Rfam assigns this 85-nucleotide RNA to the family "c-di-GMP-II-GAG riboswitch aptamer".
RNA sequence: ACGACGGCGGGAGGCGCCGACACGUGGUCCAUUCCCUUGUCGCCGGGAUCACGCCGAGCCAAUGGCGAGACCGACCCGCUCAGGC
Numbered sequence: 001a002c003g004a005c006g007g008c009g010g011g012a013g014g015c016g017c018c019g020a021c022a023c024g025u026g027g028u029c030c031a032u033u034c035c036c037u038u039g040u041c042g043c044c045g046g047g048a049u050c051a052c053g054c055c056g057a058g059c060c061a062a063u064g065g066c067g068a069g070a071c072c073g074a075c076c077c078g079c080u081c082a083g084g085c
Stems, first nucleotide, its partner, number of pairs: 002084001006080006013060003023053007039071001040068005